RNA sequence: UGACUCCAUCGCGACUGGCGUUCGGGUGGGCCACCACCGGGGAGCGAUAACAAGCGAUUCGGCCGUUCGCCUGGGCCGAAGCG
Numbered sequence: 001u002g003a004c005u006c007c008a009u010c011g012c013g014a015c016u017g018g019c020g021u022u023c024g025g026g027u028g029g030g031c032c033a034c035c036a037c038c039g040g041g042g043a044g045c046g047a048u049a050a051c052a053a054g055c056g057a058u059u060c061g062g063c064c065g066u067u068c069g070c071c072u073g074g075g076c077c078g079a080a081g082c083g
Stems, first nucleotide, its partner, number of pairs: 005050001008048005015041002017071004026037004060078005
RNA: ZMP/ZTP riboswitch aptamer (pfl RNA motif)